[Rfam]
RNA sequence: UAAGCCCAGGCUUGGGUGCGGUCAACCAAGGUAAGUCCGUCCUAAGGACGGCGCCGCACCCCCUCUCCCGCAAGGGAGUGGGCCUGGGAGGAGGU
Number, nucleotide and partner (000 for none) at each position: 001u000002a000003a000004g000005c088006c087007c086008a085009g084010g083011c082012u081013u080014g061015g060016g059017u058018g057019c056020g055021g054022u053023c000024a000025a000026c000027c000028a000029a000030g000031g000032u000033a000034a000035g052036u000037c051038c050039g049040u048041c047042c000043u000044a000045a000046g000047g041048a040049c039050g038051g037052c035053g022054c021055c020056g019057c018058a017059c016060c015061c014062c000063c000064u000065c078066u077067c076068c075069c074070g000071c000072a000073a000074g069075g068076g067077a066078g065079u000080g013081g012082g011083c010084c009085u008086g007087g006088g005089a000090g000091g000092a000093g000094g000095u000

Shown here is a 95-nucleotide RNA sequence, a member of the family "DUF1874 RNA". The family's consensus secondary structure is taken from published work. Rfam classes the family as a cis-regulatory element.